[Rfam]
RNA sequence: GAUUUAGGUAGAGGCGCAUCGCCUAUCAGUACGCCGGUCGAGGUUGAUACCCGAAGACACCGUCGGAAAGGAGUCGAUGCCGAAGUGGUUCGGGCAUCAUCCCUGACCGCUGGGGCUGCUUUUAACAGGAGCAGCACUGCCAUAGUAAAUUCCGAGAGGAGCUCGGAGCAAUUUUUACUAUGGAGCGCUACUGAAAGG
Numbered sequence: 001g002a003u004u005u006a007g008g009u010a011g012a013g014g015c016g017c018a019u020c021g022c023c024u025a026u027c028a029g030u031a032c033g034c035c036g037g038u039c040g041a042g043g044u045u046g047a048u049a050c051c052c053g054a055a056g057a058c059a060c061c062g063u064c065g066g067a068a069a070g071g072a073g074u075c076g077a078u079g080c081c082g083a084a085g086u087g088g089u090u091c092g093g094g095c096a097u098c099a100u101c102c103c104u105g106a107c108c109g110c111u112g113g114g115g116c117u118g119c120u121u122u123u124a125a126c127a128g129g130a131g132c133a134g135c136a137c138u139g140c141c142a143u144a145g146u147a148a149a150u151u152c153c154g155a156g157a158g159g160a161g162c163u164c165g166g167a168g169c170a171a172u173u174u175u176u177a178c179u180a181u182g183g184a185g186c187g188c189u190a191c192u193g194a195a196a197g198g
Base pairs, nucleotide, nucleotide: 007192008191009190010189011188016080017079018078019077020076021075023073024072032065033064035062036061037060038059084111085110086109087108088107089106090105092103093102094101112138113137115135116134117133118132119131120130121129122128140183141182142181143180144179145178146177147176148175149174
This 198-nucleotide sequence from Ferrimonas sediminicola belongs to the Rfam family "Lysine riboswitch aptamer". Its family is annotated with lysine biosynthetic process in the Gene Ontology. The match comes from Rfam's covariance-model search (121 bits). Lineage of the source: Bacteria > Pseudomonadati > Pseudomonadota > Ferrimonadaceae > Ferrimonas.